About this RNA:
This 97-nucleotide sequence from Platysternon megacephalum belongs to the Rfam family "mir-210 microRNA precursor family".

[Rfam]
RNA sequence: UCCAGAAGCUGGUGAGCCACUGACUAACGCACAUUGUGCUGUUAAAAACUCCACUGUGCGUGUGACAGCGGCUAACCUGCUUUUCGGACAUCACUGU
Dot-bracket structure: ....(((((.((..((((.(((.(((.((((((.((...............)).)))))))).).))).))))..)).)))))..............
Numbered sequence: 001u002c003c004a005g006a007a008g009c010u011g012g013u014g015a016g017c018c019a020c021u022g023a024c025u026a027a028c029g030c031a032c033a034u035u036g037u038g039c040u041g042u043u044a045a046a047a048a049c050u051c052c053a054c055u056g057u058g059c060g061u062g063u064g065a066c067a068g069c070g071g072c073u074a075a076c077c078u079g080c081u082u083u084u085c086g087g088a089c090a091u092c093a094c095u096g097u
Stems, first nucleotide, its partner, number of pairs: 005083005011077002015073004020068003024064001025062002028060006035053002
The organism belongs to Platysternon, within Eukaryota.
For this family Rfam cites "The developmental miRNA profiles of zebrafish as determined by small RNA cloning" (Chen et al., Genes Dev, 2005).
Rfam links the family to the GO terms miRNA-mediated post-transcriptional gene silencing and RISC complex.